[Rfam]
RNA sequence: AUGGGAACAGCACGGCCGCAAAUCUGACUCGCCCGUCGCGGGCUUCGAGAUUGCGGAGGUGC
Numbered sequence: 001a002u003g004g005g006a007a008c009a010g011c012a013c014g015g016c017c018g019c020a021a022a023u024c025u026g027a028c029u030c031g032c033c034c035g036u037c038g039c040g041g042g043c044u045u046c047g048a049g050a051u052u053g054c055g056g057a058g059g060u061g062c
Stems, first nucleotide, its partner, number of pairs: 010062004016056006024049002031043005
RNA: S15-Halobacteria ribosomal protein leader
Organism: Halorarum halophilum